Small Cajal body specific RNA 15: a 130-nucleotide RNA from Penelope pileata. NCBI's taxonomy places the organism under Eukaryota, Deuterostomia, Archosauria, Neognathae, Penelope. From the family's description: scaRNAs are a specific class of small nuclear RNAs which localise to the Cajal bodies and guide the modification of RNA polymerase II transcribed spliceosomal RNAs U1, U2, U4, U5 and U12. ACA45 belongs to the H/ACA box class of guide RNAs as it has the predicted hairpin-hinge-hairpin-tail structure, the conserved H/ACA-box motifs and is found associated with GAR1. ACA45 is predicted to guide the pseudouridylation of residue U37 of the U2 spliceosomal snRNA. It scores 75 bits against the family's covariance model. The base pairs follow the family's consensus structure, which was predicted with RNAfold. Rfam classes the family as a small Cajal body RNA.
RNA sequence: CCGGAGGACUAAGAAAGUGGAGCCAGUGGCUGUGUGCUGGCUCCGCUGAUACUAUCCUCCCAGAGGAACGGUGGAAGAACAAGGCCUGCCUGAGAGGCAAGGGCAGGACCUGCUUCCUCUACCCACAGGG
Dot-bracket structure: ..((((((.((......(((((((.(((....)))...)))))))....))...)))))).........((((((.(....(((((((...............)))).)))....).)))))).......